The record is a 68-nucleotide RNA from Gracilibacillus dipsosauri, which matches "Bacillaceae-1 RNA" in Rfam.
The source organism's lineage runs through Bacteria, Bacillati, Bacillota, Caryophanales and Gracilibacillus.
The match comes from Rfam's covariance-model search (45 bits).
The base pairs follow the family's consensus structure, which is taken from published work.
RNA sequence: UUAAGAGGAAGAAAGGGUUUAUCUCGCCACGUCCUGUGGCAACACUUGCAUGACCUUCAUCCCGAAGG
Numbered sequence: 001u002u003a004a005g006a007g008g009a010a011g012a013a014a015g016g017g018u019u020u021a022u023c024u025c026g027c028c029a030c031g032u033c034c035u036g037u038g039g040c041a042a043c044a045c046u047u048g049c050a051u052g053a054c055c056u057u058c059a060u061c062c063c064g065a066a067g068g
Stems, first nucleotide, its partner, number of pairs: 014047002017045002026040005054068005